Overview:
The record is a 75-nucleotide sequence from Pipistrellus kuhlii, which matches "mir-9229 microRNA precursor family" in Rfam. Gene Ontology terms of the family: miRNA-mediated post-transcriptional gene silencing and RISC complex.
[Rfam]
RNA sequence: GAGGCACCCUAAGGAGCAGGACUUGCUUCAGUGGAGCUUUGGUGCUCACUGAGUCUGCCCCUUGAGUGUGUCACU
Number, nucleotide and partner (000 for none) at each position: 001g074002a000003g072004g071005c070006a069007c068008c000009c066010u065011a063012a000013g061014g060015a000016g058017c057018a056019g000020g055021a054022c053023u000024u000025g000026c000027u000028u052029c051030a050031g049032u048033g047034g046035a000036g043037c042038u000039u000040u000041g000042g037043u036044g000045c000046u034047c033048a032049c031050u030051g029052a028053g022054u021055c020056u018057g017058c016059c000060c014061c013062u000063u011064g000065a010066g009067u000068g007069u006070g005071u004072c003073a000074c001075u000
Taxonomically the source falls in Pipistrellus (Eukaryota, Deuterostomia, Chordata, Laurasiatheria).